Rfam assigns this 483-nucleotide part of an RNA from Dreissena polymorpha to the family "Eukaryotic large subunit ribosomal RNA".
For this family Rfam cites "Crystal structure of the ribosome at 5.5 A resolution" (Yusupov et al., Science, 2001).
Lineage of the source: Eukaryota > Metazoa > Heteroconchia > Myida > Dreissena.

RNA sequence: GGUAGUAGCAAAUAUUCAAACGAGAACUUUGAAGACUGAAGUGGAGAAGGGUUCCAUGUGAACAGCAGUUGAACAUGGGUCAGUCGGCCCUAAGCGAUAGGGGAACUCCGUUCUGAAAGGCGGGGUUGGGCGCUGUCUCUAACUGAUCAUAGACGCCCUGCUCCCAGCGAAAGGGAAUCGGGUCAAUAUUCCCGAACCCGAGCACGGAGAGCGUCCCGCUUGCGGGACCAGUGCGGCAACGCAAACGACCUCGGAGACGUCGGCAGAGGCCCCGGUGAGAGUUCUCUUUUCUCAGUAAGGCGCGGACUCCCUGGAAUCGGCUUGCCCGGAGAUAGGGACGUUGUCGCCGCAACGCACCGCGGCUCUUGCGGUGUCCGGAGCGCCUCUGUCGGCCCUUGAAAAUCCGAGCGAGACGGUGUGAAUCUCGUGCCGGACCGUACCCAUAUCCGCAGCAGGUCUCCAAGGUGAACAGCCUCUAGUCGA
Numbered sequence: 001g002g003u004a005g006u007a008g009c010a011a012a013u014a015u016u017c018a019a020a021c022g023a024g025a026a027c028u029u030u031g032a033a034g035a036c037u038g039a040a041g042u043g044g045a046g047a048a049g050g051g052u053u054c055c056a057u058g059u060g061a062a063c064a065g066c067a068g069u070u071g072a073a074c075a076u077g078g079g080u081c082a083g084u085c086g087g088c089c090c091u092a093a094g095c096g097a098u099a100g101g102g103g104a105a106c107u108c109c110g111u112u113c114u115g116a117a118a119g120g121c122g123g124g125g126u127u128g129g130g131c132g133c134u135g136u137c138u139c140u141a142a143c144u145g146a147u148c149a150u151a152g153a154c155g156c157c158c159u160g161c162u163c164c165c166a167g168c169g170a171a172a173g174g175g176a177a178u179c180g181g182g183u184c185a186a187u188a189u190u191c192c193c194g195a196a197c198c199c200g201a202g203c204a205c206g207g208a209g210a211g212c213g214u215c216c217c218g219c220u221u222g223c224g225g226g227a228c229c230a231g232u233g234c235g236g237c238a239a240c241g242c243a244a245a246c247g248a249c250c251u252c253g254g255a256g257a258c259g260u261c262g263g264c265a266g267a268g269g270c271c272c273c274g275g276u277g278a279g280a281g282u283u284c285u286c287u288u289u290u291c292u293c294a295g296u297a298a299g300g301c302g303c304g305g306a307c308u309c310c311c312u313g314g315a316a317u318c319g320g321c322u323u324g325c326c327c328g329g330a331g332a333u334a335g336g337g338a339c340g341u342u343g344u345c346g347c348c349g350c351a352a353c354g355c356a357c358c359g360c361g362g363c364u365c366u367u368g369c370g371g372u373g374u375c376c377g378g379a380g381c382g383c384c385u386c387u388g389u390c391g392g393c394c395c396u397u398g399a400a401a402a403u404c405c406g407a408g409c410g411a412g413a414c415g416g417u418g419u420g421a422a423u424c425u426c427g428u429g430c431c432g433g434a435c436c437g438u439a440c441c442c443a444u445a446u447c448c449g450c451a452g453c454a455g456g457u458c459u460c461c462a463a464g465g466u467g468a469a470c471a472g473c474c475u476c477u478a479g480u481c482g483a
Stems, first nucleotide, its partner, number of pairs: 015033006034481004043461004049441002054078006063071002085437003089174002094168002096112003100109003120161007178195005198433003223427005229420001232243004250408006259393004264388007272378003276294005299348004308338006317329004355373007447456002463475004
Dot-bracket structure: ..............((((((.......))))))((((.....((((..((...((((((...((.....)).))))))......(((.((...(((((.(((....)))))).......(((((((............................))))))).....))....))...(((((........)))))..(((......................(((((.(..((((....))))......((((((...((((.(((((((.(((.(((((.........)))))....((((.....((((((...((((.....))))...))))))......))))......(((((((.....)))))))..)))...))))))).)))).........))))))...........)..)))))...))).)))..)).....((......)).)))).((((.....))))..))))..